This 64-nucleotide RNA sequence from Tenacibaculum adriaticum belongs to the Rfam family "S15-Flavobacteria ribosomal protein leader".

RNA sequence: UAUAUUUGCAACUUCAAUGAAAAAUCAUUGUAUACAUUAAAAUCAUUUAAACAAUAUUGGUAUG
Numbered sequence: 001u002a003u004a005u006u007u008g009c010a011a012c013u014u015c016a017a018u019g020a021a022a023a024a025u026c027a028u029u030g031u032a033u034a035c036a037u038u039a040a041a042a043u044c045a046u047u048u049a050a051a052c053a054a055u056a057u058u059g060g061u062a063u064g
Base pairs, nucleotide, nucleotide: 015030016029017028018027019026
Annotation
The base pairs follow the family's consensus structure, which is taken from published work. Lineage of the source: Bacteria > Flavobacteriia > Flavobacteriales > Flavobacteriaceae > Tenacibaculum.